[Rfam]
RNA sequence: CGAGGCCACGAACUACACCCAUGACAGGGGUGGGGGACCCAUUCUUGUGGGCACCGGAGACGGUGUCCUUGGGGUGAAGCCGCACGGACCUCGGUCCGCACGGCCGGGUGAGCUUCUCCGACCCGAACCCGACAGCUGACCUCUCAGGCGUCCAGGAGAACACUC
Numbered sequence: 001c002g003a004g005g006c007c008a009c010g011a012a013c014u015a016c017a018c019c020c021a022u023g024a025c026a027g028g029g030g031u032g033g034g035g036g037a038c039c040c041a042u043u044c045u046u047g048u049g050g051g052c053a054c055c056g057g058a059g060a061c062g063g064u065g066u067c068c069u070u071g072g073g074g075u076g077a078a079g080c081c082g083c084a085c086g087g088a089c090c091u092c093g094g095u096c097c098g099c100a101c102g103g104c105c106g107g108g109u110g111a112g113c114u115u116c117u118c119c120g121a122c123c124c125g126a127a128c129c130c131g132a133c134a135g136c137u138g139a140c141c142u143c144u145c146a147g148g149c150g151u152c153c154a155g156g157a158g159a160a161c162a163c164u165c
Stems, first nucleotide, its partner, number of pairs: 001147001006028002030145001032143004040071002072130003080103003106124004